Shown here is a 133-nucleotide RNA from Cervus elaphus, a member of the family "U4 spliceosomal RNA". Gene Ontology terms of the family: spliceosomal tri-snRNP complex assembly and U4 snRNP. It is annotated as a spliceosomal small nuclear RNA. Rfam describes the family as follows. U4 small nuclear RNA (U4 snRNA) is a component of the major U2-dependent spliceosome. The family is grouped with related families in Rfam's "U4 clan". A reference for the family is Vidovic et al. (2000), "Crystal structure of the spliceosomal 15.5kD protein bound to a U4 snRNA fragment", Mol Cell.
[Rfam]
RNA sequence: AGCUUUGCGCAGUGGCAGUAUCGUAGCCAAUGAGGUUUAUCCGGGGCGCGAUUAUUGCUAAUUGAAAAAAAAAAAGUCAAGGGAAUUCCCUGGUGGCCCAGUGGUUAGGAGUUUUUACUGUGGAGUUGUUUCA
Dot-bracket structure: ...................(((((.(((.....((.....))..))))))))............................(((((((((.((((((..................)))))).))))))..))).